RNA sequence: UUUAGAGUAGAUCUGUAUGCGUGAAGUACCGGGCGGACGGGGAGUUGCCGCCGGGCGAAAAGCGAAGGCUUGCGGUAUACAGAUCGCAUCCCGCUGCA
Numbered sequence: 001u002u003u004a005g006a007g008u009a010g011a012u013c014u015g016u017a018u019g020c021g022u023g024a025a026g027u028a029c030c031g032g033g034c035g036g037a038c039g040g041g042g043a044g045u046u047g048c049c050g051c052c053g054g055g056c057g058a059a060a061a062g063c064g065a066a067g068g069c070u071u072g073c074g075g076u077a078u079a080c081a082g083a084u085c086g087c088a089u090c091c092c093g094c095u096g097c098a
Stems, first nucleotide, its partner, number of pairs: 001098001003096003010085010020074003026056002029054004034050003040091003044087001060071004

This 98-nucleotide RNA sequence from Eubacterium pyruvativorans belongs to the Rfam family "THF (Tetrahydrofolate) riboswitch aptamer".
Gene Ontology term of the family: tetrahydrofolate metabolic process.